[Rfam]
RNA sequence: UUCUGAUUGGAUGAUGACUAUCACGUGUCAUAUUUUGAUUGACCAAUCACAACAACAAUACAUUUAAUUAUAAAUAGAGUCGACAUCCAAUCAGAACAUAACACGUGACAAUCAUCAUCC
Numbered sequence: 001u002u003c004u005g006a007u008u009g010g011a012u013g014a015u016g017a018c019u020a021u022c023a024c025g026u027g028u029c030a031u032a033u034u035u036u037g038a039u040u041g042a043c044c045a046a047u048c049a050c051a052a053c054a055a056c057a058a059u060a061c062a063u064u065u066a067a068u069u070a071u072a073a074a075u076a077g078a079g080u081c082g083a084c085a086u087c088c089a090a091u092c093a094g095a096a097c098a099u100a101a102c103a104c105g106u107g108a109c110a111a112u113c114a115u116c117a118u119c120c
Stems, first nucleotide, its partner, number of pairs: 021108003025104002030099002033096004038091003
Shown here is a 120-nucleotide sequence from Glycine max, a member of the family "MIR1520 microRNA precursor family". The family's consensus secondary structure was predicted with RNAalifold. Clan: MIR1520 microRNA precursor clan. Gene Ontology terms of the family: RISC complex and miRNA-mediated post-transcriptional gene silencing.